[Rfam]
RNA sequence: GAGGGUCCAGUAGGAAUUGAACCUACAAAUUCACCAAUUAUGAGUUGGGCGCUUUAACCAUUCCGUCAUGGAUGC
Numbered sequence: 001g002a003g004g005g006u007c008c009a010g011u012a013g014g015a016a017u018u019g020a021a022c023c024u025a026c027a028a029a030u031u032c033a034c035c036a037a038u039u040a041u042g043a044g045u046u047g048g049g050c051g052c053u054u055u056a057a058c059c060a061u062u063c064c065g066u067c068a069u070g071g072a073u074g075c
Stems, first nucleotide, its partner, number of pairs: 003075001005073004010026005040069003044066002047063003051059001
Dot-bracket structure: ..(.((((.(((((.......))))).............(((.((.(((.(.......).))).))))))))).)
Shown here is a 75-nucleotide RNA from Handroanthus impetiginosus, a member of the family "Plastid-ycf2 5UTR RNA". The base pairs follow the family's consensus structure, which was predicted with LocARNA. Rfam's curators write: Plastid ycf2 is a non-coding RNA (ncRNA) recognised in plastids. It was found in the prime untranslated region (5UTR) of ycf2 genes, it presents a tRNA-like motif which suggests it can be involved in mRNA maturation, particularly involved in defining the precise 5' end of the transcript. By type it is a cis-regulatory element. On this family, see Richter et al., Plant Commun 2023: "Retrograde signaling in plants: A critical review focusing on the GUN pathway and beyond". It scores 81 bits against the family's covariance model.